[Rfam]
RNA sequence: CAUCGAGGACGACUUCGACGCCGACAUCACCGAGGACGACCUCG
Numbered sequence: 001c002a003u004c005g006a007g008g009a010c011g012a013c014u015u016c017g018a019c020g021c022c023g024a025c026a027u028c029a030c031c032g033a034g035g036a037c038g039a040c041c042u043c044g
Stems, first nucleotide, its partner, number of pairs: 001020001003018006031044005
The family of this 44-nucleotide RNA sequence from Corynebacterium freneyi is "Guanidine-II riboswitch aptamer (mini-ykkC)".
It scores 38 bits against the family's covariance model.
A reference for the family is Weinberg et al. (2007), "Identification of 22 candidate structured RNAs in bacteria using the CMfinder comparative genomics pipeline", Nucleic Acids Res.